[Rfam]
RNA sequence: UGACGGGGACCCGCACAAGCGGUGGAUGAUGUGGAUUAAUUCGAUGCAACGCGAAAAACCUUACCUACCCUUGACAUGCCAGGAAUCUUGCUGAGAGGCGAGAGUGCCUUCGGGAGCCUGGACACAGGUGCUGCAUGGCUGUCGUCAGCUCGUGUCGUGAGAUGUUGGGUUAAGUCCCGCAACGAGCGCAACCCUUGUCACUAGUUGCCAUCAUUUGGUUGGGCACUCUAGUGAGACUGCCGGUGACAAACCGGAGGAAGGUGGGGAUGACGUCAAGUCCUCAUGGCCCUUAUGGGUAGGGCUUCACACGUCAUACAAUGGUCGGUACAGAGGGUUGCCAAGCCGCGAGGUGGAGCCAAUCCCUUAAAGCCGAUCGUAGUCCGGAUCGUAGUCUGCAACUCGACUACGUGAAGUCGGAAUCGCUAGUAAUCGCAGAUCAGCAUGCUGCGGUGAAUACGUUCCCGGGUCUUGUACACACCGCCCGUCACACCAUGGGAGUGGGUUUCACCAGAAGUAGGUAGCUUAACCUUCGGGGGGGCGCUUACCACGGUGAGAUUCAUGACUGGGGUGAAGUCGUAACAAGG
Numbered sequence: 001u002g003a004c005g006g007g008g009a010c011c012c013g014c015a016c017a018a019g020c021g022g023u024g025g026a027u028g029a030u031g032u033g034g035a036u037u038a039a040u041u042c043g044a045u046g047c048a049a050c051g052c053g054a055a056a057a058a059c060c061u062u063a064c065c066u067a068c069c070c071u072u073g074a075c076a077u078g079c080c081a082g083g084a085a086u087c088u089u090g091c092u093g094a095g096a097g098g099c100g101a102g103a104g105u106g107c108c109u110u111c112g113g114g115a116g117c118c119u120g121g122a123c124a125c126a127g128g129u130g131c132u133g134c135a136u137g138g139c140u141g142u143c144g145u146c147a148g149c150u151c152g153u154g155u156c157g158u159g160a161g162a163u164g165u166u167g168g169g170u171u172a173a174g175u176c177c178c179g180c181a182a183c184g185a186g187c188g189c190a191a192c193c194c195u196u197g198u199c200a201c202u203a204g205u206u207g208c209c210a211u212c213a214u215u216u217g218g219u220u221g222g223g224c225a226c227u228c229u230a231g232u233g234a235g236a237c238u239g240c241c242g243g244u245g246a247c248a249a250a251c252c253g254g255a256g257g258a259a260g261g262u263g264g265g266g267a268u269g270a271c272g273u274c275a276a277g278u279c280c281u282c283a284u285g286g287c288c289c290u291u292a293u294g295g296g297u298a299g300g301g302c303u304u305c306a307c308a309c310g311u312c313a314u315a316c317a318a319u320g321g322u323c324g325g326u327a328c329a330g331a332g333g334g335u336u337g338c339c340a341a342g343c344c345g346c347g348a349g350g351u352g353g354a355g356c357c358a359a360u361c362c363c364u365u366a367a368a369g370c371c372g373a374u375c376g377u378a379g380u381c382c383g384g385a386u387c388g389u390a391g392u393c394u395g396c397a398a399c400u401c402g403a404c405u406a407c408g409u410g411a412a413g414u415c416g417g418a419a420u421c422g423c424u425a426g427u428a429a430u431c432g433c434a435g436a437u438c439a440g441c442a443u444g445c446u447g448c449g450g451u452g453a454a455u456a457c458g459u460u461c462c463c464g465g466g467u468c469u470u471g472u473a474c475a476c477a478c479c480g481c482c483c484g485u486c487a488c489a490c491c492a493u494g495g496g497a498g499u500g501g502g503u504u505u506c507a508c509c510a511g512a513a514g515u516a517g518g519u520a521g522c523u524u525a526a527c528c529u530u531c532g533g534g535g536g537g538g539c540g541c542u543u544a545c546c547a548c549g550g551u552g553a554g555a556u557u558c559a560u561g562a563c564u565g566g567g568g569u570g571a572a573g574u575c576g577u578a579a580c581a582a583g584g
Stems, first nucleotide, its partner, number of pairs: 001475002003472003007469007015459002019423005024316001026314008034305002040055004064300007077124002079121005086103007105116001107114002127289002130287004136283002138278003141274001143272002148187006154163003166179004193266004198234007208223002212221002237257002240254005320375007332363003337356002342351003382413001387408007429451007478583001480580001483576002488570004493565003498560012514545006521539004527534002